[Rfam]
RNA sequence: CAGUGAAAUAAAUCCCUUCCGGGAUUUGUGAAAUUUGCUUCGCAAGUGAAAUACGCCUGCGGCGUGUGAAAUGCCUG
Numbered sequence: 001c002a003g004u005g006a007a008a009u010a011a012a013u014c015c016c017u018u019c020c021g022g023g024a025u026u027u028g029u030g031a032a033a034u035u036u037g038c039u040u041c042g043c044a045a046g047u048g049a050a051a052u053a054c055g056c057c058u059g060c061g062g063c064g065u066g067u068g069a070a071a072u073g074c075c076u077g
Stems, first nucleotide, its partner, number of pairs: 008029008033047005051067007
This 77-nucleotide RNA sequence from Ruminococcus sp. CAG:177 belongs to the Rfam family "Gut-1 RNA". The match comes from Rfam's covariance-model search (78 bits). Rfam 15.1 lists 51 matches to the family in 22 species. The source organism's lineage runs through Bacteria, Bacillati, Clostridia, Oscillospiraceae and Ruminococcus.